[Rfam]
RNA sequence: AAAUAAUUUGUCAUAACUUGUCGUAUAUGCUAGUGAAUAUGGACUAGCGUCUCUACCCGCCACCGUAAACGGCGGACUACGAAGUAAUGAUUUCUGAAA
Numbered sequence: 001a002a003a004u005a006a007u008u009u010g011u012c013a014u015a016a017c018u019u020g021u022c023g024u025a026u027a028u029g030c031u032a033g034u035g036a037a038u039a040u041g042g043a044c045u046a047g048c049g050u051c052u053c054u055a056c057c058c059g060c061c062a063c064c065g066u067a068a069a070c071g072g073c074g075g076a077c078u079a080c081g082a083a084g085u086a087a088u089g090a091u092u093u094c095u096g097a098a099a
Stems, first nucleotide, its partner, number of pairs: 019084001021082005029048006057075005
Dot-bracket structure: ..................(.(((((...((((((........))))))........(((((.........)))))..))))).)...............

The family of this 99-nucleotide RNA sequence is "Purine riboswitch aptamer". The family's consensus secondary structure is taken from published work.